[Rfam]
RNA sequence: AAUCAUCGAAGCGGCGCACUCCUCCUCCCAGUGCCGCUCGGUAGGAUCGGCAAUACUCCUCCUCCUCCCAAUUGCCGAUCAAGUUUAAGAGCCUGGCGCAUCCUCCUCCCGCGCCAGGCUUUUUUC
Dot-bracket structure: ......(((.(((((((.............))))))))))....((((((((((................))))))))))........(((((((((((...........))))))))))).....
Numbered sequence: 001a002a003u004c005a006u007c008g009a010a011g012c013g014g015c016g017c018a019c020u021c022c023u024c025c026u027c028c029c030a031g032u033g034c035c036g037c038u039c040g041g042u043a044g045g046a047u048c049g050g051c052a053a054u055a056c057u058c059c060u061c062c063u064c065c066u067c068c069c070a071a072u073u074g075c076c077g078a079u080c081a082a083g084u085u086u087a088a089g090a091g092c093c094u095g096g097c098g099c100a101u102c103c104u105c106c107u108c109c110c111g112c113g114c115c116a117g118g119c120u121u122u123u124u125u126c
Stems, first nucleotide, its partner, number of pairs: 007040003011037007045080010089121011

A member of the RNA family "Alphaproteobacterial ar14" from Agrobacterium albertimagni, 126 nucleotides long. The base pairs follow the family's consensus structure. A search with the family's covariance model found it, with a score of 114 bits. The family has 118 seed sequences and 784 matches in Rfam 15.1. Rfam describes the family as follows. Smr14C2 was renamed NfeR1 (Nodule Formation Efficiency RNA) highly expressed in salt stress and during the symbiotic interaction on legume roots. By type it is a small RNA.